About this RNA:
This 111-nucleotide RNA sequence from Effusibacillus dendaii belongs to the Rfam family "TPP riboswitch aptamer (THI element)". The base pairs follow the family's consensus structure, which is taken from published work. The organism belongs to Effusibacillus, within Bacteria. Gene Ontology term of the family: thiamine pyrophosphate binding.
RNA sequence: UUGUACUACUGGGGGAGUCUUUGACUCAGACUGAGAUUGGAACGUUAGGUUCCUAAACCCCUCGAACCUGAACUGGCUGAUACCAGCGUAGGAAAGUAGUGAUGCCGCAAC
Number, nucleotide and partner (000 for none) at each position: 001u000002u000003g000004u000005a000006c099007u098008a097009c096010u095011g061012g060013g059014g058015g000016a000017g031018u030019c029020u028021u000022u000023g000024a000025c000026u000027c000028a020029g019030a018031c017032u000033g000034a000035g000036a000037u000038u000039g053040g052041a051042a050043c000044g000045u000046u000047a000048g000049g000050u042051u041052c040053c039054u000055a000056a000057a000058c014059c013060c012061c011062u000063c000064g000065a000066a000067c092068c091069u090070g089071a000072a000073c086074u085075g084076g083077c000078u000079g000080a000081u000082a000083c076084c075085a074086g073087c000088g000089u070090a069091g068092g067093a000094a000095a010096g009097u008098a007099g006100u000101g000102a000103u000104g000105c000106c000107g000108c000109a000110a000111c000